A member of the RNA family "Hepatitis C alternative reading frame stem-loop", 136 nucleotides long. Rfam's curators put it in the seed alignment.

[Rfam]
RNA sequence: CUCCGUCGCCCAAUGGACGUUAAGUUCCCGGGCGGCGGCCAGAUCGUGGGUGGAGUCUACUUGUUGCCGCGCAGGGGCCCGAGAUUGGGUGUGCGCGCGACGAGGAAGACGUCCGAGCGAUCCCAGCCCCGAGGGA
Number, nucleotide and partner (000 for none) at each position: 001c000002u000003c038004c037005g036006u035007c034008g033009c032010c031011c030012a000013a000014u000015g027016g026017a025018c024019g000020u000021u000022a000023a000024g018025u017026u016027c015028c000029c000030g011031g010032g009033c008034g007035g006036c005037g004038g003039c000040c000041a000042g122043a121044u120045c119046g118047u117048g000049g114050g113051u000052g112053g000054a000055g110056u109057c108058u107059a000060c105061u104062u102063g101064u000065u000066g000067c000068c097069g096070c095071g094072c093073a092074g000075g000076g000077g090078c089079c088080c087081g000082a000083g000084a000085u000086u000087g080088g079089g078090u077091g000092u073093g072094c071095g070096c069097g068098c000099g000100a000101c063102g062103a000104g061105g060106a000107a058108g057109a056110c055111g000112u052113c050114c049115g000116a000117g047118c046119g045120a044121u043122c042123c000124c000125a000126g000127c000128c000129c000130c000131g000132a000133g000134g000135g000136a000